[Rfam]
The family of this 102-nucleotide RNA from Ralstonia sp. 5_2_56FAA is "TPP riboswitch aptamer (THI element)". Rfam links the family to the GO term thiamine pyrophosphate binding.
RNA sequence: UGGAUGAAACAGGGGUGCCGUACGGAUGGGCCGUGCGGCUGAGAGAGUCCCUUCGCACCCGAUCCGGUUCGUACCGGCGUGGGAAGUUUCAGAACACCGCGU
Numbered sequence: 001u002g003g004a005u006g007a008a009a010c011a012g013g014g015g016u017g018c019c020g021u022a023c024g025g026a027u028g029g030g031c032c033g034u035g036c037g038g039c040u041g042a043g044a045g046a047g048u049c050c051c052u053u054c055g056c057a058c059c060c061g062a063u064c065c066g067g068u069u070c071g072u073a074c075c076g077g078c079g080u081g082g083g084a085a086g087u088u089u090c091a092g093a094a095c096a097c098c099g100c101g102u
Stems, first nucleotide, its partner, number of pairs: 006090005011052004016046001017039009058083004064077004
NCBI's taxonomy places the organism under Bacteria, Pseudomonadati, Burkholderiales, Burkholderiaceae, Ralstonia.